The family of this 113-nucleotide RNA sequence from Paenibacillus antri is "Purine riboswitch aptamer". Lineage of the source: Bacteria > Bacillati > Bacilli > Paenibacillaceae > Paenibacillus. On this family, see Mandal et al., Cell 2003: "Riboswitches Control Fundamental Biochemical Pathways in Bacillus subtilis and Other Bacteria".
RNA sequence: GAACAAAUAUCAUAUUCCAUUCGUAUAACCUCGCAGGCCAAUGCCGUGUACACAGGGCGAGGGUUUCUACAGGGAGCCUUAACUUCCUAACUACGUAGCUAUGAAAAUGAGCA
Numbered sequence: 001g002a003a004c005a006a007a008u009a010u011c012a013u014a015u016u017c018c019a020u021u022c023g024u025a026u027a028a029c030c031u032c033g034c035a036g037g038c039c040a041a042u043g044c045c046g047u048g049u050a051c052a053c054a055g056g057g058c059g060a061g062g063g064u065u066u067c068u069a070c071a072g073g074g075a076g077c078c079u080u081a082a083c084u085u086c087c088u089a090a091c092u093a094c095g096u097a098g099c100u101a102u103g104a105a106a107a108u109g110a111g112c113a
Stems, first nucleotide, its partner, number of pairs: 020097001022095004029062006072088005